The family of this 224-nucleotide sequence from Ruminococcaceae bacterium AM28-23LB is "RT-2 RNA". It scores 117 bits against the family's covariance model. It is annotated as a small RNA.
RNA sequence: AUAGGUCAGUCGUAGUAACCCCUUUGGGCGAAAUCAGUACCUUUUGCAGAGGGAGGGCUUGUUCCCGGCUACCAAUCCAAAACACCCCGUCCGAUGUAGUCAGCCGGACGCUUCUUGCAUGGUGAGCGAUUGUACGGCAGCUCAUUUCAUGGCUGGUACUACACGCAGUUAGAACCCGUACCCGACAAUAUGAGUUGAAAGAAUGAACGCUGGCUCAGGACAAG
Numbered sequence: 001a002u003a004g005g006u007c008a009g010u011c012g013u014a015g016u017a018a019c020c021c022c023u024u025u026g027g028g029c030g031a032a033a034u035c036a037g038u039a040c041c042u043u044u045u046g047c048a049g050a051g052g053g054a055g056g057g058c059u060u061g062u063u064c065c066c067g068g069c070u071a072c073c074a075a076u077c078c079a080a081a082a083c084a085c086c087c088c089g090u091c092c093g094a095u096g097u098a099g100u101c102a103g104c105c106g107g108a109c110g111c112u113u114c115u116u117g118c119a120u121g122g123u124g125a126g127c128g129a130u131u132g133u134a135c136g137g138c139a140g141c142u143c144a145u146u147u148c149a150u151g152g153c154u155g156g157u158a159c160u161a162c163a164c165g166c167a168g169u170u171a172g173a174a175c176c177c178g179u180a181c182c183c184g185a186c187a188a189u190a191u192g193a194g195u196u197g198a199a200a201g202a203a204u205g206a207a208c209g210c211u212g213g214c215u216c217a218g219g220a221c222a223a224g
Base pairs, nucleotide, nucleotide: 004041005040006039019028020027067078068077070075088213092209093208095207096162097161098160099159100158101155102154103153104152105151110118111117121146122145123144124143125142126141127140166205167204169202171191172183